Mammalian CPEB3 ribozyme: a 73-nucleotide sequence from Crocodylus porosus.
[Rfam]
RNA sequence: CUGCUAUAACAGCCACAGCAGAAAUGCUCACAUAGUACCCCUGUCAGAUUCUAACAAAUCUGCAAAUUCUGCU
Numbered sequence: 001c002u003g004c005u006a007u008a009a010c011a012g013c014c015a016c017a018g019c020a021g022a023a024a025u026g027c028u029c030a031c032a033u034a035g036u037a038c039c040c041c042u043g044u045c046a047g048a049u050u051c052u053a054a055c056a057a058a059u060c061u062g063c064a065a066a067u068u069c070u071g072c073u
Base pairs, nucleotide, nucleotide: 012040013035017073018072019071020070021069022068023067024033025032026031045062046061047060048059049058050057

Description: Lineage of the source: Eukaryota > Bilateria > Amniota > Archosauria > Crocodylus. Pairs were carried over by alignment from the consensus structure, which is taken from published work. Rfam links the family to the GO term RNA nuclease activity.